Overview:
Rfam assigns this 53-nucleotide RNA from Pelagibacterales bacterium SAG-MED23 to the family "ffh sRNA".
[Rfam]
RNA sequence: CAACAAAGAGAUCGACACCAGUCAGCGAGAGUUCGCCCACUGGUGCGAUACUU
Numbered sequence: 001c002a003a004c005a006a007a008g009a010g011a012u013c014g015a016c017a018c019c020a021g022u023c024a025g026c027g028a029g030a031g032u033u034c035g036c037c038c039a040c041u042g043g044u045g046c047g048a049u050a051c052u053u
Base pairs, nucleotide, nucleotide: 016045017044018043019042020041021040022039025036026035027034028033
The base pairs follow the family's consensus structure, which is taken from published work. It scores 58 bits against the family's covariance model.